[Rfam]
RNA sequence: GCUGCCAUCUUACCUGGUGGUAUUGGGUCAAACUGAAUUCUAAUACUGCCUGGUAAUGAUGGU
Numbered sequence: 001g002c003u004g005c006c007a008u009c010u011u012a013c014c015u016g017g018u019g020g021u022a023u024u025g026g027g028u029c030a031a032a033c034u035g036a037a038u039u040c041u042a043a044u045a046c047u048g049c050c051u052g053g054u055a056a057u058g059a060u061g062g063u
Base pairs, nucleotide, nucleotide: 002062003061004060006058007057008056011055012054013053014052016050017049018048019047020046021045022044023043024042025041026040027039
Dot-bracket structure: .(((.(((..((((.((((((((((((...........)))))))))))).))))))).))).
The family of this 63-nucleotide RNA sequence from Petromyzon marinus is "mir-8/mir-141/mir-200 microRNA precursor family". Gene Ontology terms of the family: RISC complex and miRNA-mediated post-transcriptional gene silencing. The family has 164 seed sequences and 2,669 matches in Rfam 15.1. A reference for the family is Lagos-Quintana et al. (2001), "Identification of novel genes coding for small expressed RNAs", Science.